[Rfam]
RNA: mir-330 microRNA precursor family
Organism: Eptesicus fuscus
RNA sequence: GAUCACUGCCUCUCUGGGCCUGUGUCUUAGGCUCUGCAAGAUCAACCGAGCAAAGCACACGGCCUGCAGAGAGGCAGCGCUCCG
Numbered sequence: 001g002a003u004c005a006c007u008g009c010c011u012c013u014c015u016g017g018g019c020c021u022g023u024g025u026c027u028u029a030g031g032c033u034c035u036g037c038a039a040g041a042u043c044a045a046c047c048g049a050g051c052a053a054a055g056c057a058c059a060c061g062g063c064c065u066g067c068a069g070a071g072a073g074g075c076a077g078c079g080c081u082c083c084g
Stems, first nucleotide, its partner, number of pairs: 001082002004079001006077011017064004021059004026055003031051004